Record summary:
Rfam assigns this 164-nucleotide sequence from Oribacterium sp. oral taxon 078 to the family "Clostridiales-1 RNA". The base pairs follow the family's consensus structure, which is taken from published work. The family has 194 seed sequences and 1,172 matches in Rfam 15.1. It scores 99 bits against the family's covariance model. The family's RNA type in Rfam is small RNA.
[Rfam]
RNA sequence: UAAGUCCUCGUCAGGCGACAGAAUGGACGCCAUGCUUGCAUGAGCGGACAUUCUGGCAUCUGACGGGACAACAGAUAUGAGCAUGUAGGGCGAUAGCCCGGAAUGCGAAUAUCUGUCAGCGGUAUGAAAGCUGCGCCAGCAGCGAAAUACCGCGUAAGGACUUA
Numbered sequence: 001u002a003a004g005u006c007c008u009c010g011u012c013a014g015g016c017g018a019c020a021g022a023a024u025g026g027a028c029g030c031c032a033u034g035c036u037u038g039c040a041u042g043a044g045c046g047g048a049c050a051u052u053c054u055g056g057c058a059u060c061u062g063a064c065g066g067g068a069c070a071a072c073a074g075a076u077a078u079g080a081g082c083a084u085g086u087a088g089g090g091c092g093a094u095a096g097c098c099c100g101g102a103a104u105g106c107g108a109a110u111a112u113c114u115g116u117c118a119g120c121g122g123u124a125u126g127a128a129a130g131c132u133g134c135g136c137c138a139g140c141a142g143c144g145a146a147a148u149a150c151c152g153c154g155u156a157a158g159g160a161c162u163u164a
Stems, first nucleotide, its partner, number of pairs: 001164007008066004014060002017057001019055007028046002031042004071116008081106004088099004119153007130143004